Shown here is a 77-nucleotide RNA from Laticauda laticaudata, a member of the family "Mammalian CPEB3 ribozyme". Taxonomically the source falls in Laticauda (Eukaryota, Tetrapoda, Lepidosauria, Serpentes).
RNA sequence: GAUCCAUACCAUGUGAUAUAGAAGGAGCGUUCAUGUCGCGGUCCCUGUCAGGUAUCUGUUUACCUGUGAAUCCUUCU
Numbered sequence: 001g002a003u004c005c006a007u008a009c010c011a012u013g014u015g016a017u018a019u020a021g022a023a024g025g026a027g028c029g030u031u032c033a034u035g036u037c038g039c040g041g042u043c044c045c046u047g048u049c050a051g052g053u054a055u056c057u058g059u060u061u062a063c064c065u066g067u068g069a070a071u072c073c074u075u076c077u
Base pairs, nucleotide, nucleotide: 013045015043016042017040020077021076022075023074024073025072026071027039028038029037049066050065051064052063053062054061
Dot-bracket structure: ............[.[[[..((((((((((.......)))].]].]...((((((......))))))....)))))))